[Rfam]
RNA: Group II catalytic intron D1-D4-1
Nucleotides: 093
Stems, first nucleotide, its partner, number of pairs: 001026002004023001006021001008019004039046002048093003057086002067080003
Number, partner (000 for none) and nucleotide at each position: 001026c002025g003000g004023u005000c006021u007000c008019a009018u010017u011016a012000g013000c014000c015000g016011u017010a018009g019008u020000a021006a022000c023004a024000a025002c026001g027000a028000a029000c030000u031000g032000u033000g034000a035000g036000a037000a038000g039046u040045c041000a042000g043000c044000a045040g046039a047000g048093g049092u050091c051000g052000u053000a054000g055000u056000a057086g058085u059000g060000a061000a062000g063000a064000a065000g066000u067080u068079c069078c070000u071000g072000u073000a074000a075000u076000g077000g078069g079068g080067a081000u082000g083000g084000a085058g086057c087000g088000a089000a090000g091050g092049a093048c